RNA: Group II catalytic intron D1-D4-2
RNA sequence: GAAGGAGUUCGGGGCCCUUCGGCAUCGUUCUGCGGGGAAUGGUGUCAAACCACCUCAUGGUGCCUUAGCUGAAGACUGUGGUGCUGAGCGAUGAGGAAAAGGCAUCCGUUUGAGGUGUCAGGU
Numbered sequence: 001g002a003a004g005g006a007g008u009u010c011g012g013g014g015c016c017c018u019u020c021g022g023c024a025u026c027g028u029u030c031u032g033c034g035g036g037g038a039a040u041g042g043u044g045u046c047a048a049a050c051c052a053c054c055u056c057a058u059g060g061u062g063c064c065u066u067a068g069c070u071g072a073a074g075a076c077u078g079u080g081g082u083g084c085u086g087a088g089c090g091a092u093g094a095g096g097a098a099a100a101g102g103c104a105u106c107c108g109u110u111u112g113a114g115g116u117g118u119c120a121g122g123u
Stems, first nucleotide, its partner, number of pairs: 001020005021046006028039004051122001053096006059085002062082003066078003101119006